[Rfam]
RNA sequence: CGCCGAACCGUUCUGACCGAACGGACGGGGGACCCAUCGCGACCGCAGACCGGUCGCCGGGGCGAAUCCGCGUCUGGAUGACGCGGUAGCGCUGCCUGUGCAGCGCGAGCCCGUCAGCUGACCCCGCAGGCGA
Numbered sequence: 001c002g003c004c005g006a007a008c009c010g011u012u013c014u015g016a017c018c019g020a021a022c023g024g025a026c027g028g029g030g031g032a033c034c035c036a037u038c039g040c041g042a043c044c045g046c047a048g049a050c051c052g053g054u055c056g057c058c059g060g061g062g063c064g065a066a067u068c069c070g071c072g073u074c075u076g077g078a079u080g081a082c083g084c085g086g087u088a089g090c091g092c093u094g095c096c097u098g099u100g101c102a103g104c105g106c107g108a109g110c111c112c113g114u115c116a117g118c119u120g121a122c123c124c125c126g127c128a129g130g131c132g133a
Base pairs, nucleotide, nucleotide: 001132002131003130004129008024009023010022011021012020013019026126027125028124029123030122035059060112061111062110068086069085070084071083072082073081074080089106090105091104092103
Rfam assigns this 133-nucleotide RNA sequence from Baekduia soli to the family "c-di-AMP riboswitch aptamer (ydaO/yuaA leader)". NCBI's taxonomy places the organism under Bacteria, Actinomycetota, Solirubrobacterales, Baekduiaceae, Baekduia.